[Rfam]
RNA sequence: GAUCGCGCGGACUCACUCAACCUGGGUGUGAUGCUUGCCUAUGUAUCAGGCCCUAGUGGUCAUCACAACCUUUUUGAGUGAGCGAACGAGGUC
Number, nucleotide and partner (000 for none) at each position: 001g000002a000003u000004c000005g000006c000007g000008c000009g000010g083011a000012c082013u081014c080015a079016c078017u077018c076019a075020a074021c000022c000023u000024g070025g069026g000027u067028g066029u065030g064031a063032u062033g061034c000035u000036u000037g000038c000039c000040u000041a000042u000043g000044u000045a000046u000047c000048a000049g000050g000051c000052c000053c000054u000055a000056g000057u000058g000059g000060u000061c033062a032063u031064c030065a029066c028067a027068a000069c025070c024071u000072u000073u000074u020075u019076g018077a017078g016079u015080g014081a013082g012083c010084g000085a000086a000087c000088g000089a000090g000091g000092u000093c000